[Rfam]
The record is an 88-nucleotide RNA sequence from a Fimbriimonadaceae bacterium, which matches "tRNA" in Rfam. For this family Rfam cites "The tertiary structure of tRNA and the development of the genetic code" (Hou, Trends Biochem Sci, 1993).
RNA sequence: AGAGCGAUGUCCGAGUGGUCGAUGGAGCGGGCCUGGAAAGCUCGUAAUCGUGAUGAACGGUUCGUGGGUUCGAAUCCCACUCGCUCUG
Dot-bracket structure: (((((((..((((.........)))).(((((.......)))))...................(((((.......)))))))))))).
Taxonomically the source falls in Fimbriimonadaceae (Bacteria, Bacillati, Armatimonadota, Fimbriimonadia). Rfam classes the family as a transfer RNA. The match comes from Rfam's covariance-model search (50 bits).